[Rfam]
RNA sequence: AGAUAUGAGGGUGAUCUGGCUGUCACAUCUGUCACCCCAUUGAUCUCCAGGGCUGAUUCGGCUGAUCUGGCUGGCUAGGCGGGUGUCCCCAUUCUCCCUCACCGUUCCAUGUGCAUCCCUCCCGAAGCCAUGCACUCAGUUGAAGAGGACGACCUUCCCCGAUAGAAGAGAAACGUUCUUCAGCCAAAGGUUUAUAAGUAGCUGCGUUCCCCUUCUAGAACCUCCAAUCAAGCUCUCAAAGUCCAUUUAUAGGAGAAUCUAGGUGAUCAAACUUCCAAGACUCCAGACACAUCCAAAUGAGGCACUGCAUGUGGCAGCCUGCCUUUCUUU
Numbered sequence: 001a002g003a004u005a006u007g008a009g010g011g012u013g014a015u016c017u018g019g020c021u022g023u024c025a026c027a028u029c030u031g032u033c034a035c036c037c038c039a040u041u042g043a044u045c046u047c048c049a050g051g052g053c054u055g056a057u058u059c060g061g062c063u064g065a066u067c068u069g070g071c072u073g074g075c076u077a078g079g080c081g082g083g084u085g086u087c088c089c090c091a092u093u094c095u096c097c098c099u100c101a102c103c104g105u106u107c108c109a110u111g112u113g114c115a116u117c118c119c120u121c122c123c124g125a126a127g128c129c130a131u132g133c134a135c136u137c138a139g140u141u142g143a144a145g146a147g148g149a150c151g152a153c154c155u156u157c158c159c160c161g162a163u164a165g166a167a168g169a170g171a172a173a174c175g176u177u178c179u180u181c182a183g184c185c186a187a188a189g190g191u192u193u194a195u196a197a198g199u200a201g202c203u204g205c206g207u208u209c210c211c212c213u214u215c216u217a218g219a220a221c222c223u224c225c226a227a228u229c230a231a232g233c234u235c236u237c238a239a240a241g242u243c244c245a246u247u248u249a250u251a252g253g254a255g256a257a258u259c260u261a262g263g264u265g266a267u268c269a270a271a272c273u274u275c276c277a278a279g280a281c282u283c284c285a286g287a288c289a290c291a292u293c294c295a296a297a298u299g300a301g302g303c304a305c306u307g308c309a310u311g312u313g314g315c316a317g318c319c320u321g322c323c324u325u326u327c328u329u330u
Base pairs, nucleotide, nucleotide: 002107003106006101007100008099009098010097011096013093014092018090019089025086026085027084028083029082030081031080032079033078035074036073037070038069039068042067043066044065045064047061048060116171117170118168120166121165122139124137125136127135140162141161142160147158148157149156201272203270207266208265210263212262213261222255223254224253225252230248231247232246295330296329297328299325300324301323302322303321305317306316307315308314
RNA: 7SK RNA